[Rfam]
The family of this 90-nucleotide RNA sequence from Lawsonia intracellularis is "Selenocysteine transfer RNA". Pairs were carried over by alignment from the consensus structure, which is taken from published work. It is one of the family's seed sequences. Rfam links the family to the GO term triplet codon-amino acid adaptor activity. Lineage of the source: Bacteria > Thermodesulfobacteriota > Desulfovibrionia > Desulfovibrionaceae > Lawsonia intracellularis.
RNA sequence: GGAAGCGUAUUGCCACCGGUGUGGUACUUGGUCUUCAAAACCAGUGUCAGGCUGAGAGGUCUGAGGUAGGUUCGACUCCUAUACGCUUCC
Numbered sequence: 001g002g003a004a005g006c007g008u009a010u011u012g013c014c015a016c017c018g019g020u021g022u023g024g025u026a027c028u029u030g031g032u033c034u035u036c037a038a039a040a041c042c043a044g045u046g047u048c049a050g051g052c053u054g055a056g057a058g059g060u061c062u063g064a065g066g067u068a069g070g071u072u073c074g075a076c077u078c079c080u081a082u083a084c085g086c087u088u089c090c
Stems, first nucleotide, its partner, number of pairs: 001090009011026006028044005047064005067081004